[Rfam]
RNA sequence: AGAUCGAUGAUCGCACCCUCACAUGUGUUCCCUGGAAAAUCUAAACAAAAUGAGUGAGAAAUUGAUAUCAUCUCCUCAUCGAAACAAGGUCU
Numbered sequence: 001a002g003a004u005c006g007a008u009g010a011u012c013g014c015a016c017c018c019u020c021a022c023a024u025g026u027g028u029u030c031c032c033u034g035g036a037a038a039a040u041c042u043a044a045a046c047a048a049a050a051u052g053a054g055u056g057a058g059a060a061a062u063u064g065a066u067a068u069c070a071u072c073u074c075c076u077c078a079u080c081g082a083a084a085c086a087a088g089g090u091c092u
Base pairs, nucleotide, nucleotide: 001092002091003090004089005088026056027055028054029053030052033047034046
Annotation:
A member of the RNA family "Small nucleolar RNA SNORD116" from Bison bison, 92 nucleotides long. NCBI's taxonomy places the organism under Eukaryota, Metazoa, Eutheria, Artiodactyla, Bison bison. A reference for the family is Cavaille et al. (2000), "Identification of brain-specific and imprinted small nucleolar RNA genes exhibiting an unusual genomic organization", Proc Natl Acad Sci U S A. Rfam links the family to the GO terms nucleolus and RNA processing.